[Rfam]
RNA sequence: ACUGCGGGCCGGGCCCCUCUGACGGUUGUUUCGAAAACGAUCGUGAUGUCGGACGGCAUCG
Numbered sequence: 001a002c003u004g005c006g007g008g009c010c011g012g013g014c015c016c017c018u019c020u021g022a023c024g025g026u027u028g029u030u031u032c033g034a035a036a037a038c039g040a041u042c043g044u045g046a047u048g049u050c051g052g053a054c055g056g057c058a059u060c061g
Stems, first nucleotide, its partner, number of pairs: 007054001009052004022044008
terC RNA: a 61-nucleotide sequence from Sphingobium herbicidovorans.